RNA sequence: UAAGUCCUGAUGUGUACGUUCCAUGUACCUAUUCGUUUUGACCGAACAUAUUAACAAUGGGAGUUUGGAGUUUUCAUGUGGCAUACAUGCCUUAUUGAUAAGGACGUAUAAAGCUGGAACAGAACACCCACCUGCUUUUAGAGCGGGUUCAAAACAUUAGGAUUUUACGACGGCAUGAUUGGGGCUUAU
Numbered sequence: 001u002a003a004g005u006c007c008u009g010a011u012g013u014g015u016a017c018g019u020u021c022c023a024u025g026u027a028c029c030u031a032u033u034c035g036u037u038u039u040g041a042c043c044g045a046a047c048a049u050a051u052u053a054a055c056a057a058u059g060g061g062a063g064u065u066u067g068g069a070g071u072u073u074u075c076a077u078g079u080g081g082c083a084u085a086c087a088u089g090c091c092u093u094a095u096u097g098a099u100a101a102g103g104a105c106g107u108a109u110a111a112a113g114c115u116g117g118a119a120c121a122g123a124a125c126a127c128c129c130a131c132c133u134g135c136u137u138u139u140a141g142a143g144c145g146g147g148u149u150c151a152a153a154a155c156a157u158u159a160g161g162a163u164u165u166u167a168c169g170a171c172g173g174c175a176u177g178a179u180u181g182g183g184g185c186u187u188a189u
Stems, first nucleotide, its partner, number of pairs: 002187010012176004017172003035155003039151003042147002059129003063125004068120001073118004078114002085107002090103004
The record is a 189-nucleotide RNA sequence from Heyndrickxia oleronia, which matches "6S / SsrS RNA" in Rfam. By type it is a non-coding RNA gene. A search with the family's covariance model found it, with a score of 103 bits. Rfam's curators write: E. coli 6S RNA was the first non coding RNA to be sequenced, but its function was unknown until recently. Rfam 15.1 lists 5,006 matches to the family in 4,638 species.